The record is a 73-nucleotide sequence from Gammaproteobacteria bacterium AqS3, which matches "tRNA" in Rfam. Rfam links the family to the GO term triplet codon-amino acid adaptor activity. The base pairs follow the family's consensus structure, which is taken from published work. It scores 69 bits against the family's covariance model. The source organism's lineage runs through Bacteria, Pseudomonadati, Pseudomonadota and Gammaproteobacteria. By type it is a transfer RNA.

RNA sequence: GGGGAUGUAGCUCAAUCGGGAGAGCGUCUGCCCUGCAAGCAGAAGGUCGCCGGUUCGAUUCCGGCCGUCUCCA
Number, nucleotide and partner (000 for none) at each position: 001g072002g071003g070004g069005a068006u067007g066008u000009a000010g025011c024012u023013c022014a000015a000016u000017c000018g000019g000020g000021a000022g013023a012024g011025c010026g000027u043028c042029u041030g040031c039032c000033c000034u000035g000036c000037a000038a000039g031040c030041a029042g028043a027044a000045g000046g000047u000048c000049g065050c064051c063052g062053g061054u000055u000056c000057g000058a000059u000060u000061c053062c052063g051064g050065c049066c007067g006068u005069c004070u003071c002072c001073a000